[Rfam]
The record is a 71-nucleotide RNA sequence from Nocardioides sp. Leaf285, which matches "Actino-pnp RNA" in Rfam.
RNA sequence: CCCGGUCCUCGGUAGUGGCCCUCAGACCCGCCAGGAGGCGGACGCGCUGCGGGCCUCGAUCGAAGACCGGC
Numbered sequence: 001c002c003c004g005g006u007c008c009u010c011g012g013u014a015g016u017g018g019c020c021c022u023c024a025g026a027c028c029c030g031c032c033a034g035g036a037g038g039c040g041g042a043c044g045c046g047c048u049g050c051g052g053g054c055c056u057c058g059a060u061c062g063a064a065g066a067c068c069g070g071c
Stems, first nucleotide, its partner, number of pairs: 002070006009063005017055005023049003029044002
The family's RNA type in Rfam is cis-regulatory element.
It scores 57 bits against the family's covariance model.
The family's consensus secondary structure is taken from published work.